[Rfam]
RNA sequence: UCACUGGUCGCCGCGUUGAAGUUUGACGGCAUAAACCCAGUACCGGACAUGACGAAAAGG
Dot-bracket structure: ...((((..((((.((....))....))))......))))....................
RNA: cow-rumen-1 RNA